Rfam assigns this 247-nucleotide RNA sequence from Coniosporium apollinis to the family "Small nucleolar RNA snR191". For this family Rfam cites "A snoRNA that guides the two most conserved pseudouridine modifications within rRNA confers a growth advantage in yeast" (Badis et al., RNA, 2003). Lineage of the source: Eukaryota > Fungi > Ascomycota > leotiomyceta > Coniosporium apollinis. The family is grouped with related families in Rfam's "SNORA74 clan".
RNA sequence: UCCCAUCGUUAAGUCAAGGCCCCUUCCUGCACUCGCUGCAACCCAAUGGAAGACCGCCUGUUACAACUUUGGGAUAUCGAUCUCGCGCCCGCCGCUCUCUACCGUCAUGGCAGUGGAGCUGACCAGCCGCCGUCUUGGAGGCUGCGUCUCACAGGGCGCGAGGAUGUUUCGUUUGAGUUGAGGACUUCGCCGUCGUUCUUUCGAGCGGCCCGUUGUGGCGGUUCUCUUAGUAAUGAUUCAUACAUAU
Dot-bracket structure: ..(((...........((((..(((((((((.....)))).......)))))...))))........)..))..........((((((......(((.((.((.....)).)).).))..(((..(((.(((...))).)))...))).......))))))..(((..((((.......((((...(((..(((((((....)))))))......)))....))))......))))..)))......
Numbered sequence: 001u002c003c004c005a006u007c008g009u010u011a012a013g014u015c016a017a018g019g020c021c022c023c024u025u026c027c028u029g030c031a032c033u034c035g036c037u038g039c040a041a042c043c044c045a046a047u048g049g050a051a052g053a054c055c056g057c058c059u060g061u062u063a064c065a066a067c068u069u070u071g072g073g074a075u076a077u078c079g080a081u082c083u084c085g086c087g088c089c090c091g092c093c094g095c096u097c098u099c100u101a102c103c104g105u106c107a108u109g110g111c112a113g114u115g116g117a118g119c120u121g122a123c124c125a126g127c128c129g130c131c132g133u134c135u136u137g138g139a140g141g142c143u144g145c146g147u148c149u150c151a152c153a154g155g156g157c158g159c160g161a162g163g164a165u166g167u168u169u170c171g172u173u174u175g176a177g178u179u180g181a182g183g184a185c186u187u188c189g190c191c192g193u194c195g196u197u198c199u200u201u202c203g204a205g206c207g208g209c210c211c212g213u214u215g216u217g218g219c220g221g222u223u224c225u226c227u228u229a230g231u232a233a234u235g236a237u238u239c240a241u242a243c244a245u246a247u
Stems, first nucleotide, its partner, number of pairs: 003072002005068001017059004023052005028040004083161006095118002097115001099113002102110002121148003126142003130138003164241003169236004180226004187218003192209007